[Rfam]
RNA sequence: GAGUUAUUUUUAAUGGCGAGCUUAACUUUUUAUAGGUAGGCGUAGAGAAAUCGAGUCUUAAAUGGGCUAAAAAGUCUUUAGAUAUAAACCCGAAACCAAGUGAUCUAUUUAUGAACAGGUUGAAAAUAUGAUAAUACAUAUUGGAGGACCGAACCCACUAAUGUUGAAAAAUUAGGGGAAGAUUUGUGAAUAGGGGUGAAAGGCCAAACAAACUUGGAGAUAGCUGGUU
Numbered sequence: 001g002a003g004u005u006a007u008u009u010u011u012a013a014u015g016g017c018g019a020g021c022u023u024a025a026c027u028u029u030u031u032a033u034a035g036g037u038a039g040g041c042g043u044a045g046a047g048a049a050a051u052c053g054a055g056u057c058u059u060a061a062a063u064g065g066g067c068u069a070a071a072a073a074g075u076c077u078u079u080a081g082a083u084a085u086a087a088a089c090c091c092g093a094a095a096c097c098a099a100g101u102g103a104u105c106u107a108u109u110u111a112u113g114a115a116c117a118g119g120u121u122g123a124a125a126a127u128a129u130g131a132u133a134a135u136a137c138a139u140a141u142u143g144g145a146g147g148a149c150c151g152a153a154c155c156c157a158c159u160a161a162u163g164u165u166g167a168a169a170a171a172u173u174a175g176g177g178g179a180a181g182a183u184u185u186g187u188g189a190a191u192a193g194g195g196g197u198g199a200a201a202g203g204c205c206a207a208a209c210a211a212a213c214u215u216g217g218a219g220a221u222a223g224c225u226g227g228u229u
Stems, first nucleotide, its partner, number of pairs: 005086003009082005015076003020041004026035002045052002054068005089227002092224001096217006105193011116181001118150004125142006154178003158175005195205003
The family of this 229-nucleotide part of an RNA from Candidatus Zinderia insecticola is "Bacterial large subunit ribosomal RNA".